[Rfam]
RNA sequence: CAAGCCAGAAGAGGUGCGUCGCCCAGGUAGAGUGUCAGAGGAGCCGUUGUCCAAUGACGGCGCUUGAGGGGGAGCGACGCCGAGGUAAGGUGAUGUGCGGCAUUCAUCGUAUCGACUACAGGGGCUGAAUCCCCUGAGUUGUCACCAGGGAUUGUCCGUAGGGGCAAUCAGCAAGGUGGGGCGCUUCUGGGUGU
Numbered sequence: 001c002a003a004g005c006c007a008g009a010a011g012a013g014g015u016g017c018g019u020c021g022c023c024c025a026g027g028u029a030g031a032g033u034g035u036c037a038g039a040g041g042a043g044c045c046g047u048u049g050u051c052c053a054a055u056g057a058c059g060g061c062g063c064u065u066g067a068g069g070g071g072g073a074g075c076g077a078c079g080c081c082g083a084g085g086u087a088a089g090g091u092g093a094u095g096u097g098c099g100g101c102a103u104u105c106a107u108c109g110u111a112u113c114g115a116c117u118a119c120a121g122g123g124g125c126u127g128a129a130u131c132c133c134c135u136g137a138g139u140u141g142u143c144a145c146c147a148g149g150g151a152u153u154g155u156c157c158g159u160a161g162g163g164g165c166a167a168u169c170a171g172c173a174a175g176g177u178g179g180g181g182c183g184c185u186u187c188u189g190g191g192u193g194u
Stems, first nucleotide, its partner, number of pairs: 006189006016080007024072001030065007084113004089108005114140004119136006142179005
RNA: Lysine riboswitch aptamer